The family of this 91-nucleotide RNA sequence from Liquorilactobacillus ghanensis is "RNA anti-toxin A". The family's consensus secondary structure was predicted with RNAalifold.
RNA sequence: UAAUAUGAGUAAGAAAAAGGAAGUCCCGCUGGAACAGGACUUCCAAUGUAGAGCCGUUUAAGACGGUGACAUAAUUUAACGUUAUUAAAUA
Numbered sequence: 001u002a003a004u005a006u007g008a009g010u011a012a013g014a015a016a017a018a019g020g021a022a023g024u025c026c027c028g029c030u031g032g033a034a035c036a037g038g039a040c041u042u043c044c045a046a047u048g049u050a051g052a053g054c055c056g057u058u059u060a061a062g063a064c065g066g067u068g069a070c071a072u073a074a075u076u077u078a079a080c081g082u083u084a085u086u087a088a089a090u091a
Stems, first nucleotide, its partner, number of pairs: 025038002028035001053067006
The source organism's lineage runs through Bacteria, Bacillati, Bacillota, Lactobacillaceae and Liquorilactobacillus ghanensis. It is annotated as an antitoxin RNA.